[Rfam]
RNA sequence: UGUGAGAGUGAUGAGUUGCACUCUUAAGCUGGGGCUCCGGUGCAGUGGCACAUAGGAGUCUCAGUCCGACCUCCUGAGGACACGCCCAUGUGCACAGGGGCCAUCUGACUCACA
Numbered sequence: 001u002g003u004g005a006g007a008g009u010g011a012u013g014a015g016u017u018g019c020a021c022u023c024u025u026a027a028g029c030u031g032g033g034g035c036u037c038c039g040g041u042g043c044a045g046u047g048g049c050a051c052a053u054a055g056g057a058g059u060c061u062c063a064g065u066c067c068g069a070c071c072u073c074c075u076g077a078g079g080a081c082a083c084g085c086c087c088a089u090g091u092g093c094a095c096a097g098g099g100g101c102c103a104u105c106u107g108a109c110u111c112a113c114a
Stems, first nucleotide, its partner, number of pairs: 004113001006111003025069001028066001029064004034059003040051004
RNA: Small nucleolar RNA SNORD67